[Rfam]
Nucleotides: 047
Base pairs, nucleotide, nucleotide: 010025011024012023032044033043034042
Number, partner (000 for none) and nucleotide at each position: 001000a002000u003000u004000c005000c006000u007000u008000c009000u010025g011024u012023c013000a014000u015000g016000u017000a018000u019000g020000c021000g022000c023012g024011a025010u026000c027000a028000a029000u030000g031000c032044a033043g034042c035000c036000u037000u038000a039000g040000g041000u042034g043033c044032u045000u046000c047000a